[Rfam]
Nucleotides: 082
Base pairs, nucleotide, nucleotide: 058078059077060076061075062074063073064072065071
Number, partner (000 for none) and nucleotide at each position: 001000a002000g003000u004000a005000a006000a007000a008000u009000c010000g011000u012000g013000u014000g015000a016000u017000u018000u019000c020000g021000g022000u023000a024000u025000c026000u027000c028000c029000c030000a031000u032000u033000a034000a035000a036000u037000g038000a039000u040000a041000u042000u043000g044000a045000g046000u047000u048000c049000u050000c051000c052000u053000a054000g055000a056000u057000a058078a059077c060076c061075u062074c063073g064072g065071u066000g067000g068000c069000g070000u071065g072064c073063c074062g075061g076060g077059g078058u079000u080000u081000u082000u
A member of the RNA family "Photosynthesis regulatory RNA1" from Aphanothece sacrum, 82 nucleotides long. The base pairs follow the family's consensus structure, which was predicted with CMfinder. The match comes from Rfam's covariance-model search (63 bits). A reference for the family is Georg et al. (2014), "The small regulatory RNA SyR1/PsrR1 controls photosynthetic functions in cyanobacteria", Plant Cell. Formerly known as Syr1 discovered in Synechocystis sp PCC 6803, is a regulatory factor controlling photosynthetic functions. PsrR1 interacts with the ribosome binding regions of several photosynthesis-related mRNAs. In particular, psaL mRNA is processed by RNase E only in the presence of PsrR1.